[Rfam]
The family of this 208-nucleotide RNA sequence from Streptomyces clavuligerus is "Streptomyces RNA 1601". Taxonomically the source falls in Streptomyces (Bacteria, Bacillati, Actinomycetota, Kitasatosporales). Rfam's curators write: Identified by deep sequencing of transcriptome at the end of exponential growth phase. Appears longer on northern blot than sequencing transcript. The match comes from Rfam's covariance-model search (156 bits).
RNA sequence: GACGACCGGCUGGACGCGACUGUGUCCGGCCCACAAGUGGAGGCUCCGAUUCUCCCACCUUGCCGCCCUCGGGGCGGCGGGUCACCGGUCACGCGGCACCCAUCGUUCCGUACGGACGAUGGAGCCGCUGAUACGCGCCCCGCGGUUGCCGCGGCGGUGCUCCGGUAGCAAUGGAGCAGCCGCCUGUGUCCCGUCCGGGGCAUUUUUC
Numbered sequence: 001g002a003c004g005a006c007c008g009g010c011u012g013g014a015c016g017c018g019a020c021u022g023u024g025u026c027c028g029g030c031c032c033a034c035a036a037g038u039g040g041a042g043g044c045u046c047c048g049a050u051u052c053u054c055c056c057a058c059c060u061u062g063c064c065g066c067c068c069u070c071g072g073g074g075c076g077g078c079g080g081g082u083c084a085c086c087g088g089u090c091a092c093g094c095g096g097c098a099c100c101c102a103u104c105g106u107u108c109c110g111u112a113c114g115g116a117c118g119a120u121g122g123a124g125c126c127g128c129u130g131a132u133a134c135g136c137g138c139c140c141c142g143c144g145g146u147u148g149c150c151g152c153g154g155c156g157g158u159g160c161u162c163c164g165g166u167a168g169c170a171a172u173g174g175a176g177c178a179g180c181c182g183c184c185u186g187u188g189u190c191c192c193g194u195c196c197g198g199g200g201c202a203u204u205u206u207u208c
Base pairs, nucleotide, nucleotide: 004090005089006088007087008086009085012027013026028083029082030081031080032079035060037058038057039056040055041053042052062078063077064076065075066074067073068072093128094127095126096125100122101121102120103119104118105117106116107115137201138200139199140198141197142196143193144192145191150188151187152186153184154183155182156181157180159177160176161175162174163173